[Rfam]
RNA sequence: CGAUGAGAUAGAGGCGCAGGAUAAAAAGAGUAUACUAUUGGAGUUGACUGCGAAGAUAAUAGUAGAAAGGAUUAUCAUGCCGAAGUAAAGGGAAAGCAUUGGUCAGUGUUACUUUACUGGGAUAUCUUUGAAUAAAAGGUAUACUGUCAUGUCUUUUACGUGAUGAGCUGUUGAUCGA
Numbered sequence: 001c002g003a004u005g006a007g008a009u010a011g012a013g014g015c016g017c018a019g020g021a022u023a024a025a026a027a028g029a030g031u032a033u034a035c036u037a038u039u040g041g042a043g044u045u046g047a048c049u050g051c052g053a054a055g056a057u058a059a060u061a062g063u064a065g066a067a068a069g070g071a072u073u074a075u076c077a078u079g080c081c082g083a084a085g086u087a088a089a090g091g092g093a094a095a096g097c098a099u100u101g102g103u104c105a106g107u108g109u110u111a112c113u114u115u116a117c118u119g120g121g122a123u124a125u126c127u128u129u130g131a132a133u134a135a136a137a138g139g140u141a142u143a144c145u146g147u148c149a150u151g152u153c154u155u156u157u158a159c160g161u162g163a164u165g166a167g168c169u170g171u172u173g174a175u176c177g178a
Stems, first nucleotide, its partner, number of pairs: 007172005016080003020076005033064008084118007092110002095107001119145002122142008147163005
RNA: Lysine riboswitch aptamer